The record is a 196-nucleotide sequence from Saccharata proteae, which matches "U2 spliceosomal RNA" in Rfam. Clan: U2 clan. The organism belongs to Saccharata proteae, within Eukaryota.
RNA sequence: CCAGUUCUCUUGCCUCCUGGCUAAGAUCAAACGCAGUUUCGUUCUUAAUCAGUUUAAUUACUGUAUUAGACAUCUAUGGGUGUUUUCUACUAAUUAUUCUACUUUUUGGAAACCCGAUUGCUGGCCUCUACACUUGUGUAUGUCAAUGAUCACUGUGUCGCUGGUAUUGCACUACCUCCAGCUGAUGCGAACAUUC
Numbered sequence: 001c002c003a004g005u006u007c008u009c010u011u012g013c014c015u016c017c018u019g020g021c022u023a024a025g026a027u028c029a030a031a032c033g034c035a036g037u038u039u040c041g042u043u044c045u046u047a048a049u050c051a052g053u054u055u056a057a058u059u060a061c062u063g064u065a066u067u068a069g070a071c072a073u074c075u076a077u078g079g080g081u082g083u084u085u086u087c088u089a090c091u092a093a094u095u096a097u098u099c100u101a102c103u104u105u106u107u108g109g110a111a112a113c114c115c116g117a118u119u120g121c122u123g124g125c126c127u128c129u130a131c132a133c134u135u136g137u138g139u140a141u142g143u144c145a146a147u148g149a150u151c152a153c154u155g156u157g158u159c160g161c162u163g164g165u166a167u168u169g170c171a172c173u174a175c176c177u178c179c180a181g182c183u184g185a186u187g188c189g190a191a192c193a194u195u196c
Stems, first nucleotide, its partner, number of pairs: 008026003012021003046068003050063003069084006116151005122145002129140004154189006160182005